[Rfam]
RNA sequence: UCCUCUUCAACGCUGCGUUUCUAUGCUACAAACGGAGAGAUGAUAUACUGCGCAAGCAGUCCCCCAUCUCUCACACCUUCUUUGGCAUAUGAGAAAUUCGGAGAAUCAGCUUCACUCUUUUCCAGCUCGCCCGUCAUCCCUUCGGGGACGGCGGUGUCGAAUUCAGCUCUGCCGGUAACGGUCCAGCGCGACUUCGCGUCCUGUAAUUGGCAUCAGAAAAGCAGGGUCCUGGGCCUCGGGGACGUCUGGCAACAGGCUGUCCCUUUGGUUCCAGGUAUUCCUCUGGGAGGGCCAUUACGAAGCUUGUGGUCAAACACUUGAGUACGAUACGCAGCGUGCGGUUCCCUUUCUCUUCCUUCGGGAGGGUGAAUGGGACUGUACAAUUCGAUUCCGAUUACUCUGUUGAGGA
Dot-bracket structure: ((((...((..(((((((...((((.........((((((((......................)))))))).............)))).........[[[[[....((((..........................................................................(((((....)))))......(.((((...........(((......................................................)))........)))).)....))))........................)))))))((((((((((..........................)))))))))).......]]]]].......))...))))
Nuclear RNase P: a 409-nucleotide RNA sequence from Coniochaeta sp. 2T2.1. Rfam describes the family as follows. Ribonuclease P (RNase P) is a ubiquitous endoribonuclease, found in archaea, bacteria and eukarya as well as chloroplasts and mitochondria. Its best characterised activity is the generation of mature 5'-ends of tRNAs by cleaving the 5'-leader elements of precursor-tRNAs. Cellular RNase Ps are ribonucleoproteins. RNA from bacterial RNase Ps retains its catalytic activity in the absence of the protein subunit, i.e. it is a ribozyme. Isolated eukaryotic and archaeal RNase P RNA has not been shown to retain its catalytic function, but is still essential for the catalytic activity of the holoenzyme. Although the archaeal and eukaryotic holoenzyme s have a much greater protein content than the bacterial ones, the RNA cores from all the three lineages are homologous -- helices corresponding to P1, P2, P3, P4, and P10/11 are common to all cellular RNase P RNAs. Yet, there is considerable sequence variation, particularly among the eukaryotic RNAs. Lineage of the source: Eukaryota > Sordariomycetes > Sordariomycetidae > Coniochaetaceae > Coniochaeta.